[Rfam]
RNA sequence: GCGCAGUCCAACAACCCUGACGGCGACGACCAAUCGGAGGGCAAGCCUGGUGCCAGCAACCGCGGUAAUUCCAGCUCCGAU
Numbered sequence: 001g002c003g004c005a006g007u008c009c010a011a012c013a014a015c016c017c018u019g020a021c022g023g024c025g026a027c028g029a030c031c032a033a034u035c036g037g038a039g040g041g042c043a044a045g046c047c048u049g050g051u052g053c054c055a056g057c058a059a060c061c062g063c064g065g066u067a068a069u070u071c072c073a074g075c076u077c078c079g080a081u
Stems, first nucleotide, its partner, number of pairs: 001024002003021001005018002034080006047074004056063002